[Rfam]
TPP riboswitch aptamer (THI element): a 99-nucleotide RNA sequence from Dysgonomonas sp. BGC7. Pairs were carried over by alignment from the consensus structure, which is taken from published work.
RNA sequence: CAUCACUGUUAGGGGUGUUCUUCUAGUAAAGAGCUGAGAUUAAACCCUUGAACCUGAUAUGUUGUAAUUGACAUCGUAGGGAAACGGUUGCUUUUUAGA
Numbered sequence: 001c002a003u004c005a006c007u008g009u010u011a012g013g014g015g016u017g018u019u020c021u022u023c024u025a026g027u028a029a030a031g032a033g034c035u036g037a038g039a040u041u042a043a044a045c046c047c048u049u050g051a052a053c054c055u056g057a058u059a060u061g062u063u064g065u066a067a068u069u070g071a072c073a074u075c076g077u078a079g080g081g082a083a084a085c086g087g088u089u090g091c092u093u094u095u096u097a098g099a
Stems, first nucleotide, its partner, number of pairs: 006087005011048004016042001017034005053080004059074004
The match comes from Rfam's covariance-model search (55 bits).